[Rfam]
RNA sequence: CAAAAAAGAAAAGCGAACCCUCAUAUAUUUUUGGGAAUAUGGCCCAACUGUUUCUACCCGGCGACCGAGAAUUGCCGGACUAUGAAGGGGAAAUAAAAACGU
Numbered sequence: 001c002a003a004a005a006a007a008g009a010a011a012a013g014c015g016a017a018c019c020c021u022c023a024u025a026u027a028u029u030u031u032u033g034g035g036a037a038u039a040u041g042g043c044c045c046a047a048c049u050g051u052u053u054c055u056a057c058c059c060g061g062c063g064a065c066c067g068a069g070a071a072u073u074g075c076c077g078g079a080c081u082a083u084g085a086a087g088g089g090g091a092a093a094u095a096a097a098a099a100c101g102u
Stems, first nucleotide, its partner, number of pairs: 018088002021085005031047005058078007